Background:
Small nucleolar RNA SNORD16: a 99-nucleotide RNA sequence from Rattus norvegicus. The source organism's lineage runs through Eukaryota, Bilateria, Teleostomi, Muridae and Rattus. A reference for the family is Fragapane et al. (1993), "A novel small nucleolar RNA (U16) is encoded inside a ribosomal protein intron and originates by processing of the pre-mRNA", EMBO J. Rfam classes the family as a C/D-box small nucleolar RNA.

[Rfam]
RNA sequence: UGCAGUGAUGUUGUAAUUUGCGUCUUACUCUGUUUUCAGUGACAGUUGCCUGCUGUCAGAAAGCUGAAUCAGAAGGUUGACGAAAAUUAUUGCUGAGCA
Numbered sequence: 001u002g003c004a005g006u007g008a009u010g011u012u013g014u015a016a017u018u019u020g021c022g023u024c025u026u027a028c029u030c031u032g033u034u035u036u037c038a039g040u041g042a043c044a045g046u047u048g049c050c051u052g053c054u055g056u057c058a059g060a061a062a063g064c065u066g067a068a069u070c071a072g073a074a075g076g077u078u079g080a081c082g083a084a085a086a087u088u089a090u091u092g093c094u095g096a097g098c099a
Stems, first nucleotide, its partner, number of pairs: 001099003021082004030072003034068001039064002041057005